[Rfam]
RNA sequence: GUGAGUAGCAGCAUAGCAUGGUGAGAAUCCAUGUCGCCGCAGGGGCAAGGGUUCCUUGGCAAUGUUCGUCAGCCAAGGGUUAGUCGAUCCUAAGGUAUCUCUUAAUCGAGGAUAUCGAAUGGGAAUCAGGUUAAUAUUCCUGAACUUCUACUUUCUUUGCCUAUGGUGCAGGAUCGGGGUAGUUGGAGCAAGUUUGUCUGCUUGUUCAAGCGUGUAAGGGAGCGAAGAACCGUAAUGGUGAGAAACUCCUGAAAGCGUGAUGAUGCGGGAGAAAUCCCGCUUCUGAUGAUCCCUGGUCCCAGUGAACCCACUAUAGUUACAAUUGUAGGAAUCGUACCAAGAACCGACACAGGUGUCCCUAGGUGAGUAGCCUAAGGCGUGU
Dot-bracket structure: ...............((((((.......))))))((((....((((..((...((((((...((.....)).))))))......(((.((...((((((((......)).))))))....))...(((((........)))))..((((((..............(((..(((((((((..(((((((((((........))))))...((((.....((((......(((.....)))......)))).....))))...........(....).......)))))...))))))))).........))).............)))))).)))..)).....((......)).)))).((((.......)))).))))...
RNA: Archaeal large subunit ribosomal RNA, nucleotides 1335 to 1716